[Rfam]
RNA sequence: GAUAAAUAAGAUGAAAAAUCUUAUCGCCGUAAGACUAAGGGUUCCUGAUCAACGCUAAUCGGAUCAGGGUUAGUCGGGUCCUUAGGCAAAGCCGAGAGGCGUAGCUGAUGGCAAACUGGUGAAUAUUCCAGUACCUGCUAUAAAUUCGAUGGAGUAACGGAGUAGUGAAAGGACUGCGCACUUACGGAAUAGUGCGUUAAAGGGUGUAGGUAUACUGACUGUAGGAAAAUCCGCAGAUGGUGCUGAACCUGAUAGUACAGCAAAGCUUCGGCAGCGCUGAUAAUGUCCCUAAUCAGACUUCCAAGAAAAACUUCUAAGGUUCGUUUAUAGCAGCCCGUACCGUAAACCGACACAGGUAGUCGAGAUGAGUAUUCUAAGGCGCU
Numbered sequence: 001g002a003u004a005a006a007u008a009a010g011a012u013g014a015a016a017a018a019u020c021u022u023a024u025c026g027c028c029g030u031a032a033g034a035c036u037a038a039g040g041g042u043u044c045c046u047g048a049u050c051a052a053c054g055c056u057a058a059u060c061g062g063a064u065c066a067g068g069g070u071u072a073g074u075c076g077g078g079u080c081c082u083u084a085g086g087c088a089a090a091g092c093c094g095a096g097a098g099g100c101g102u103a104g105c106u107g108a109u110g111g112c113a114a115a116c117u118g119g120u121g122a123a124u125a126u127u128c129c130a131g132u133a134c135c136u137g138c139u140a141u142a143a144a145u146u147c148g149a150u151g152g153a154g155u156a157a158c159g160g161a162g163u164a165g166u167g168a169a170a171g172g173a174c175u176g177c178g179c180a181c182u183u184a185c186g187g188a189a190u191a192g193u194g195c196g197u198u199a200a201a202g203g204g205u206g207u208a209g210g211u212a213u214a215c216u217g218a219c220u221g222u223a224g225g226a227a228a229a230u231c232c233g234c235a236g237a238u239g240g241u242g243c244u245g246a247a248c249c250u251g252a253u254a255g256u257a258c259a260g261c262a263a264a265g266c267u268u269c270g271g272c273a274g275c276g277c278u279g280a281u282a283a284u285g286u287c288c289c290u291a292a293u294c295a296g297a298c299u300u301c302c303a304a305g306a307a308a309a310a311c312u313u314c315u316a317a318g319g320u321u322c323g324u325u326u327a328u329a330g331c332a333g334c335c336c337g338u339a340c341c342g343u344a345a346a347c348c349g350a351c352a353c354a355g356g357u358a359g360u361c362g363a364g365a366u367g368a369g370u371a372u373u374c375u376a377a378g379g380c381g382c383u
Stems, first nucleotide, its partner, number of pairs: 006024006025381004033361004039341002044068006053061002075337004080111002085106003089102001091100003115132005135333011146319002151314005159301004165294001171288004176197006198254002202250004209244003216239002219236004224232002258279004347356002363375003
The family of this 383-nucleotide part of an RNA from Chitinophaga flava is "Bacterial large subunit ribosomal RNA". Rfam 15.1 lists 51,934 matches to the family in 10,816 species. The family's consensus secondary structure is taken from published work. The match comes from Rfam's covariance-model search (2730 bits). Its family is annotated with ribosome and structural constituent of ribosome in the Gene Ontology.